Source information:
The record is a 73-nucleotide sequence, which matches "RAGATH-18 RNA" in Rfam. Rfam classes the family as a small RNA. Actinobacteria, Firmicutes, Fusobacteria, Thermotogae (1 example).

RNA sequence: ACUGUGGAGUGUACAAGAACUUGUGAGUAGAUAUGAUCUCGGUCAAUCCAAAGCAUACACGAUAAAGCAGUAA
Numbered sequence: 001a002c003u004g005u006g007g008a009g010u011g012u013a014c015a016a017g018a019a020c021u022u023g024u025g026a027g028u029a030g031a032u033a034u035g036a037u038c039u040c041g042g043u044c045a046a047u048c049c050a051a052a053g054c055a056u057a058c059a060c061g062a063u064a065a066a067g068c069a070g071u072a073a
Stems, first nucleotide, its partner, number of pairs: 001071005009060005022055003030048003034045002